The record is an 82-nucleotide sequence from Pseudobdellovibrio exovorus, which matches "c-di-GMP-I riboswitch aptamer" in Rfam.
The match comes from Rfam's covariance-model search (64 bits).
Gene Ontology term of the family: cyclic-di-GMP binding.
Nucleotides: 082
Stems, first nucleotide, its partner, number of pairs: 012037002017032006040076004047072002049068003053064004
Number, partner (000 for none) and nucleotide at each position: 001000u002000u003000u004000g005000c006000c007000u008000c009000a010000a011000g012037g013036c014000a015000a016000a017032c018031u019030c020029a021028g022027g023000g024000a025000a026000a027022u028021c029020u030019g031018a032017g033000g034000a035000c036013g037012c038000a039000a040076a041075g042074c043073u044000a045000g046000a047072g048071g049068g050067g051066c052000u053064u054063g055062u056061c057000g058000g059000g060000a061056g062055a063054c064053a065000u066051g067050c068049u069000a070000g071048c072047c073043a074042g075041c076040u077000g078000c079000c080000a081000a082000a